Fluoride riboswitch aptamer (crcB RNA motif): a 63-nucleotide RNA sequence from Alicyclobacillus acidocaldarius. Rfam links the family to the GO terms positive regulation of gene expression and response to fluoride. The base pairs follow the family's consensus structure, which is taken from published work. A search with the family's covariance model found it, with a score of 54 bits.
RNA sequence: CAGUAUGUCGGUGAUGGAGCUCACCGGAACCGCCCACGACGGGCUGAUGGCUCCUGCGAUGCA
Number, nucleotide and partner (000 for none) at each position: 001c000002a000003g000004u000005a000006u000007g000008u000009c000010g025011g024012u023013g022014a000015u000016g054017g053018a052019g051020c050021u049022c013023a012024c011025c010026g000027g000028a000029a000030c000031c000032g044033c043034c042035c041036a000037c000038g000039a000040c000041g035042g034043g033044c032045u000046g000047a000048u000049g021050g020051c019052u018053c017054c016055u000056g000057c000058g000059a000060u000061g000062c000063a000